[Rfam]
RNA sequence: AAAAAGAUAAACCAUGGGUUUCCGUGUCCAACGUUUGACCGUCCGUCUUAUUUGAAAAAAUUAUGAAAAAAAUUAAAAAGACAAGUCAUGCAUAAAGUAUUAAUCAUGUUUUAUCAUCUAACAAUAAUGAAAAUACUAAUUAUAAAAAAAUUUCAUAUAAGACAGACAGUCAAACGUUGGACACAGAAACUUAGGGUUUAUUUUUUU
Numbered sequence: 001a002a003a004a005a006g007a008u009a010a011a012c013c014a015u016g017g018g019u020u021u022c023c024g025u026g027u028c029c030a031a032c033g034u035u036u037g038a039c040c041g042u043c044c045g046u047c048u049u050a051u052u053u054g055a056a057a058a059a060a061u062u063a064u065g066a067a068a069a070a071a072a073u074u075a076a077a078a079a080g081a082c083a084a085g086u087c088a089u090g091c092a093u094a095a096a097g098u099a100u101u102a103a104u105c106a107u108g109u110u111u112u113a114u115c116a117u118c119u120a121a122c123a124a125u126a127a128u129g130a131a132a133a134u135a136c137u138a139a140u141u142a143u144a145a146a147a148a149a150a151u152u153u154c155a156u157a158u159a160a161g162a163c164a165g166a167c168a169g170u171c172a173a174a175c176g177u178u179g180g181a182c183a184c185a186g187a188a189a190c191u192u193a194g195g196g197u198u199u200a201u202u203u204u205u206u207u
Stems, first nucleotide, its partner, number of pairs: 027181006034174006041167003045163007
RNA: MIR812 microRNA precursor family
Organism: Oryza sativa